The record is a 101-nucleotide RNA sequence from Rummeliibacillus sp. TYF005, which matches "Purine riboswitch aptamer" in Rfam. The base pairs follow the family's consensus structure, which is taken from published work. The match comes from Rfam's covariance-model search (76 bits). The organism belongs to Rummeliibacillus, within Bacteria.

RNA sequence: UAAUAAAAGAAUAGAUAACCUUGUAUAAAUUCAAGAAUACGGCUUGAAAGUUUCUACCAGCUACCGAUAAUAGCUUGUCUACAAGGAAUGGGAUUUUAAUG
Numbered sequence: 001u002a003a004u005a006a007a008a009g010a011a012u013a014g015a016u017a018a019c020c021u022u023g024u025a026u027a028a029a030u031u032c033a034a035g036a037a038u039a040c041g042g043c044u045u046g047a048a049a050g051u052u053u054c055u056a057c058c059a060g061c062u063a064c065c066g067a068u069a070a071u072a073g074c075u076u077g078u079c080u081a082c083a084a085g086g087a088a089u090g091g092g093a094u095u096u097u098a099a100u101g
Stems, first nucleotide, its partner, number of pairs: 019086007030048006058077002060074004